RNA sequence: ACACGAGAAGGGAGGUGGUUCGGCCAGAUGUACAACAACCGGACGCGUGAGGUGGCUGCGGCCUGACGGCCGUCGUCACAGCGUGACGCCGGCGUCGCCGGCCAAUCCCAAGCAGUCACCCAGCCCGCGGGCCCGUCGGACUCGUCCGACCGGCGCCCCUCCGCCACCGGCGGUGGGGAGCAGCCCGCGGGCUGCUUUCU
Numbered sequence: 001a002c003a004c005g006a007g008a009a010g011g012g013a014g015g016u017g018g019u020u021c022g023g024c025c026a027g028a029u030g031u032a033c034a035a036c037a038a039c040c041g042g043a044c045g046c047g048u049g050a051g052g053u054g055g056c057u058g059c060g061g062c063c064u065g066a067c068g069g070c071c072g073u074c075g076u077c078a079c080a081g082c083g084u085g086a087c088g089c090c091g092g093c094g095u096c097g098c099c100g101g102c103c104a105a106u107c108c109c110a111a112g113c114a115g116u117c118a119c120c121c122a123g124c125c126c127g128c129g130g131g132c133c134c135g136u137c138g139g140a141c142u143c144g145u146c147c148g149a150c151c152g153g154c155g156c157c158c159c160u161c162c163g164c165c166a167c168c169g170g171c172g173g174u175g176g177g178g179a180g181c182a183g184c185c186c187g188c189g190g191g192c193u194g195c196u197u198u199c200u
Stems, first nucleotide, its partner, number of pairs: 015059005061103001063101003067097001069093004074088003121194012135154005